MIR9563 microRNA precursor family: a 125-nucleotide sequence from Brassica napus.
NCBI's taxonomy places the organism under Eukaryota, Streptophyta, Embryophyta, Spermatophyta, Brassica.
RNA sequence: GGAAUAUGAGAACCUGUCUCUUAACUUUUAACUAAAAAAGCUAAGAACCAGCUUUUAAAUAAGAGUUUUAUGAACACGUUCUUAAUUUUUUUAGUUAAAAGUUAAGAAACGGGUUCUUAUAUUCC
Numbered sequence: 001g002g003a004a005u006a007u008g009a010g011a012a013c014c015u016g017u018c019u020c021u022u023a024a025c026u027u028u029u030a031a032c033u034a035a036a037a038a039a040g041c042u043a044a045g046a047a048c049c050a051g052c053u054u055u056u057a058a059a060u061a062a063g064a065g066u067u068u069u070a071u072g073a074a075c076a077c078g079u080u081c082u083u084a085a086u087u088u089u090u091u092u093a094g095u096u097a098a099a100a101g102u103u104a105a106g107a108a109a110c111g112g113g114u115u116c117u118u119a120u121a122u123u124c125c
Stems, first nucleotide, its partner, number of pairs: 001125017019107021042084006